[Rfam]
RNA sequence: UCAGACGGCCGGAUGGCCGCCCUGUCGGCGCCUUCGGGCGGAUGGCGGGGAGGAAAGUCCGGGCUCCACGGAAACACGGUGCCGGGUAACGCCCGGCGGGGGCGACCCCAGGGAAAGUGCCACAGAGAGCAGACCGCCCGGCCGGCGGACAUGAAACCUUCGGGUUGCCUGUGCGUGCCGGGUAAGGGUGAAAGGGUGCGGUAAGAGCGCACCGCGCCCCCGGCAACGGGGGCGGCAUGGUAAACCCCACCGGGAGCAAGACCGAAUAGGAACCGCGUGCCGGAUCGAAACCCUCGGUUGCGGCAGGGCCUGUUUCCGGCCUGGCGGUUCGGGUUGGUCGCGAGAGGCGUCCGGCGACGGGCGUCCCAGAGGAAUGGUCAUCCAGCGCCCCUUCGGGGUGUGGACAGAACCCGGCUUACAGGCCGUCUGACCCC
Numbered sequence: 001u002c003a004g005a006c007g008g009c010c011g012g013a014u015g016g017c018c019g020c021c022c023u024g025u026c027g028g029c030g031c032c033u034u035c036g037g038g039c040g041g042a043u044g045g046c047g048g049g050g051a052g053g054a055a056a057g058u059c060c061g062g063g064c065u066c067c068a069c070g071g072a073a074a075c076a077c078g079g080u081g082c083c084g085g086g087u088a089a090c091g092c093c094c095g096g097c098g099g100g101g102g103c104g105a106c107c108c109c110a111g112g113g114a115a116a117g118u119g120c121c122a123c124a125g126a127g128a129g130c131a132g133a134c135c136g137c138c139c140g141g142c143c144g145g146c147g148g149a150c151a152u153g154a155a156a157c158c159u160u161c162g163g164g165u166u167g168c169c170u171g172u173g174c175g176u177g178c179c180g181g182g183u184a185a186g187g188g189u190g191a192a193a194g195g196g197u198g199c200g201g202u203a204a205g206a207g208c209g210c211a212c213c214g215c216g217c218c219c220c221c222g223g224c225a226a227c228g229g230g231g232g233c234g235g236c237a238u239g240g241u242a243a244a245c246c247c248c249a250c251c252g253g254g255a256g257c258a259a260g261a262c263c264g265a266a267u268a269g270g271a272a273c274c275g276c277g278u279g280c281c282g283g284a285u286c287g288a289a290a291c292c293c294u295c296g297g298u299u300g301c302g303g304c305a306g307g308g309c310c311u312g313u314u315u316c317c318g319g320c321c322u323g324g325c326g327g328u329u330c331g332g333g334u335u336g337g338u339c340g341c342g343a344g345a346g347g348c349g350u351c352c353g354g355c356g357a358c359g360g361g362c363g364u365c366c367c368a369g370a371g372g373a374a375u376g377g378u379c380a381u382c383c384a385g386c387g388c389c390c391c392u393u394c395g396g397g398g399u400g401u402g403g404a405c406a407g408a409a410c411c412c413g414g415c416u417u418a419c420a421g422g423c424c425g426u427c428u429g430a431c432c433c434c
Base pairs, nucleotide, nucleotide: 001430002429003428004427005426006425007424008423009422010421011419012382013381014380015379016378017377018376020050021049022048023047024046025045026044027043055417056416057415059414060413061412062411063410064256065255066254067253073315074314077252078251079250080249081248082096083095084094085093086092097111098109099108100107101106112247113246117245118244119241120240121239134187135186136183137182138181139180140179141178142177195213196212197211198210199209200208214236215234216233217232218231219230220229221228222227260339261338262337263336270330271329272328273327274326275325307321308320309319310318346365347364348363349362350361351360352359353358